[Rfam]
RNA sequence: GCAUCUCAUCUAGAAGGGCUGACGCCCUGCCAACCUGCCUAUCCGGGCAAGGUGGCCAAGCGAUGUGGCCCAAGUGGCAACCAAGCGGAAGCGU
Numbered sequence: 001g002c003a004u005c006u007c008a009u010c011u012a013g014a015a016g017g018g019c020u021g022a023c024g025c026c027c028u029g030c031c032a033a034c035c036u037g038c039c040u041a042u043c044c045g046g047g048c049a050a051g052g053u054g055g056c057c058a059a060g061c062g063a064u065g066u067g068g069c070c071c072a073a074g075u076g077g078c079a080a081c082c083a084a085g086c087g088g089a090a091g092c093g094u
Stems, first nucleotide, its partner, number of pairs: 007065004015028005029056003034052003037048003042089004068078003
Dot-bracket structure: ......((((....(((((....)))))(((..((((((..[[[[))).))).))).....))))..(((.....))).......]]]].....

This 94-nucleotide RNA from Curvibacter sp. AEP1-3 belongs to the Rfam family "SAM-I/IV (S-adenosyl methionine) riboswitch aptamer". The match comes from Rfam's covariance-model search (60 bits). The family is grouped with related families in Rfam's "SAM clan".